[Rfam]
Overview: This 200-nucleotide sequence from Oryza sativa belongs to the Rfam family "MIR812 microRNA precursor family". The organism belongs to Oryza, within Eukaryota. Rfam 15.1 lists 57,451 matches to the family in 24 species. Its family is annotated with RISC complex and miRNA-mediated post-transcriptional gene silencing in the Gene Ontology. The sequence is in the family's curated seed alignment. The base pairs follow the family's consensus structure, which was predicted with RNAalifold.
RNA sequence: UUUAAGUGUAACCAUAAAAUUUCAUGCCCAAUUUUGAUCGUUCAUCUUAUUUGGAUUUUUUUAUAAUUAAUAUUUUUAUUAUUAUGAGAUAAUAAGACAUGAAUAGUUACUUUAUUUGUAACUUACGUUUUUAAUUUUUUUAAGUUUUUUAAAAGACGGACGGUCAAAGUUGAUCACGGAAAAUCAUGGCUGCACUUAAA
Numbered sequence: 001u002u003u004a005a006g007u008g009u010a011a012c013c014a015u016a017a018a019a020u021u022u023c024a025u026g027c028c029c030a031a032u033u034u035u036g037a038u039c040g041u042u043c044a045u046c047u048u049a050u051u052u053g054g055a056u057u058u059u060u061u062u063a064u065a066a067u068u069a070a071u072a073u074u075u076u077u078a079u080u081a082u083u084a085u086g087a088g089a090u091a092a093u094a095a096g097a098c099a100u101g102a103a104u105a106g107u108u109a110c111u112u113u114a115u116u117u118g119u120a121a122c123u124u125a126c127g128u129u130u131u132u133a134a135u136u137u138u139u140u141u142a143a144g145u146u147u148u149u150u151a152a153a154a155g156a157c158g159g160a161c162g163g164u165c166a167a168a169g170u171u172g173a174u175c176a177c178g179g180a181a182a183a184u185c186a187u188g189g190c191u192g193c194a195c196u197u198a199a200a
Stems, first nucleotide, its partner, number of pairs: 029172015045156004050151001